This 110-nucleotide RNA from Cavia porcellus belongs to the Rfam family "Vault RNA".
The family has 73 seed sequences and 2,873 matches in Rfam 15.1.
A search with the family's covariance model found it, with a score of 62 bits.
The base pairs follow the family's consensus structure, which is taken from published work.
On this family, see Stadler et al., Mol Biol Evol 2009: "Evolution of Vault RNAs".

RNA sequence: GGGCUGGCUUUAGCCCAGUGGUUCCUUCGACUUUGGCUUCCCAACCGCUUGGGCCGCUGGCUUCCAUAGGUCUAGUGGUUCGAGACCUGUCGGCGCUCUCCAGUCCUUUU
Number, nucleotide and partner (000 for none) at each position: 001g000002g105003g104004c103005u102006g101007g100008c000009u000010u000011u000012a000013g094014c093015c092016c000017a000018g090019u089020g088021g087022u000023u000024c000025c000026u084027u083028c082029g081030a080031c000032u000033u000034u000035g000036g000037c000038u000039u000040c000041c000042c000043a000044a000045c000046c000047g000048c000049u000050u000051g000052g000053g000054c000055c000056g000057c000058u000059g000060g000061c000062u000063u000064c000065c000066a000067u000068a000069g000070g000071u000072c000073u000074a000075g000076u000077g000078g000079u000080u030081c029082g028083a027084g026085a000086c000087c021088u020089g019090u018091c000092g015093g014094c013095g000096c000097u000098c000099u000100c007101c006102a005103g004104u003105c002106c000107u000108u000109u000110u000